The family of this 109-nucleotide RNA sequence from Echinimonas agarilytica is "Guanidine-I riboswitch aptamer". Its family is annotated with regulation of gene expression in the Gene Ontology. This family represents a conserved RNA structure found upstream of the ykkC and yxkD genes in Bacillus subtilis and related genes in other bacteria. The function of this family is unclear although it has been suggested that it may function to switch on efflux pumps and detoxification systems in response to harmful environmental molecules. Lineage of the source: Bacteria > Pseudomonadota > Gammaproteobacteria > Alteromonadales > Echinimonas.
[Rfam]
RNA sequence: UUAAUGGACAUCUAGGGUUCCGGCUCAAUGCGAACGCAAUUUGAGCGACUGGACCGAGAGUUGUCAACCUCACCAAGAGGUCACACGGAGGGAUAAAAGCCCGGGAGAU
Numbered sequence: 001u002u003a004a005u006g007g008a009c010a011u012c013u014a015g016g017g018u019u020c021c022g023g024c025u026c027a028a029u030g031c032g033a034a035c036g037c038a039a040u041u042u043g044a045g046c047g048a049c050u051g052g053a054c055c056g057a058g059a060g061u062u063g064u065c066a067a068c069c070u071c072a073c074c075a076a077g078a079g080g081u082c083a084c085a086c087g088g089a090g091g092g093a094u095a096a097a098a099g100c101c102c103g104g105g106a107g108a109u
Base pairs, nucleotide, nucleotide: 007065008064009063010062012060015055016054020052021051022049023046024045025044026043027042028041067081068080069079070078071077084104086107090102091101092100